[Rfam]
RNA sequence: AAUAAAGCAGGGCCUUGUUGCCUUUUGUGAACUAGCUUCUCGUAAACUUCAGGGAAAUUACUUGUGCAUUAUUCUUGGGUGAACCUCUGGAUUUUAUCGGUCCCUGAAGGUUCAGUAAAUGAUGCUAAAUUU
Numbered sequence: 001a002a003u004a005a006a007g008c009a010g011g012g013c014c015u016u017g018u019u020g021c022c023u024u025u026u027g028u029g030a031a032c033u034a035g036c037u038u039c040u041c042g043u044a045a046a047c048u049u050c051a052g053g054g055a056a057a058u059u060a061c062u063u064g065u066g067c068a069u070u071a072u073u074c075u076u077g078g079g080u081g082a083a084c085c086u087c088u089g090g091a092u093u094u095u096a097u098c099g100g101u102c103c104c105u106g107a108a109g110g111u112u113c114a115g116u117a118a119a120u121g122a123u124g125c126u127a128a129a130u131u132u
Base pairs, nucleotide, nucleotide: 005049006048007047011038012037014035015034017032066125067124068123069122070121071120072119073118080114081113082112083111084110085109086108
Record summary
Small nucleolar RNA snoR74: a 132-nucleotide RNA sequence from Hibiscus syriacus. NCBI's taxonomy places the organism under Eukaryota, Mesangiospermae, Gunneridae, Malvoideae, Hibiscus. The match comes from Rfam's covariance-model search (103 bits). The family has 9 seed sequences and 1,404 matches in Rfam 15.1. The family's RNA type in Rfam is H/ACA-box small nucleolar RNA. On this family, see Marker et al., Curr Biol 2002: "Experimental RNomics: identification of 140 candidates for small non-messenger RNAs in the plant Arabidopsis thaliana".